[Rfam]
Overview
The family of this 82-nucleotide RNA sequence from Janibacter indicus is "ZMP/ZTP riboswitch aptamer (pfl RNA motif)". Gene Ontology terms of the family: one-carbon metabolic process and regulation of purine nucleotide biosynthetic process. A search with the family's covariance model found it, with a score of 53 bits. Lineage of the source: Bacteria > Actinomycetes > Micrococcales > Intrasporangiaceae > Janibacter.
RNA sequence: UCGGGGGCACACGACUGGCGAAGGUGGAUCACCACCGGGGAGUGAGACAAGUCGAGGUGCAUCGCCCGCCUGGGUGCACCCA
Numbered sequence: 001u002c003g004g005g006g007g008c009a010c011a012c013g014a015c016u017g018g019c020g021a022a023g024g025u026g027g028a029u030c031a032c033c034a035c036c037g038g039g040g041a042g043u044g045a046g047a048c049a050a051g052u053c054g055a056g057g058u059g060c061a062u063c064g065c066c067c068g069c070c071u072g073g074g075u076g077c078a079c080c081c082a
Base pairs, nucleotide, nucleotide: 006048008046010044011043012042015039016038017070018069019068020067024035025034026033027032059077060076061075062074063073
Dot-bracket structure: .....(.(.(((..(([[[[...((((....))))..))..))).).)..........(((((...]]]]..))))).....